Rfam assigns this 110-nucleotide sequence to the family "Alphaproteobacterial ar15". The base pairs follow the family's consensus structure. Its family is annotated with protein binding in the Gene Ontology. It scores 87 bits against the family's covariance model. On this family, see del Val et al., RNA Biol 2012: "A survey of sRNA families in alpha-proteobacteria". Clan: suhB sRNA clan.
RNA sequence: UGCGGACGAACAUGGCGGUCACCUCCCAGUUCCGCCGCAACAGCUGUUCCCCUCUGGAGGUUCAAGAUCUCCACACUUUAUGGGCCGCGGUUUUCCGUCGGCCCUUUUUU
Numbered sequence: 001u002g003c004g005g006a007c008g009a010a011c012a013u014g015g016c017g018g019u020c021a022c023c024u025c026c027c028a029g030u031u032c033c034g035c036c037g038c039a040a041c042a043g044c045u046g047u048u049c050c051c052c053u054c055u056g057g058a059g060g061u062u063c064a065a066g067a068u069c070u071c072c073a074c075a076c077u078u079u080a081u082g083g084g085c086c087g088c089g090g091u092u093u094u095c096c097g098u099c100g101g102c103c104c105u106u107u108u109u110u
Stems, first nucleotide, its partner, number of pairs: 002044002005041001008038001015035004055073007082104005087098004